[Rfam]
RNA sequence: CCAGCGGAAGCCGAAAAGCUGAUAGAGUAGGCA
Numbered sequence: 001c002c003a004g005c006g007g008a009a010g011c012c013g014a015a016a017a018g019c020u021g022a023u024a025g026a027g028u029a030g031g032c033a
Base pairs, nucleotide, nucleotide: 002021003020004019005018010032011031012030
Dot-bracket structure: .((((....[[[.....))))........]]].
Shown here is a 33-nucleotide RNA sequence from Spirosoma sordidisoli, a member of the family "DUF805b RNA". Lineage of the source: Bacteria > Pseudomonadati > Cytophagia > Cytophagaceae > Spirosoma. The family is grouped with related families in Rfam's "DUF805 clan". Pairs were carried over by alignment from the consensus structure, which is taken from published work.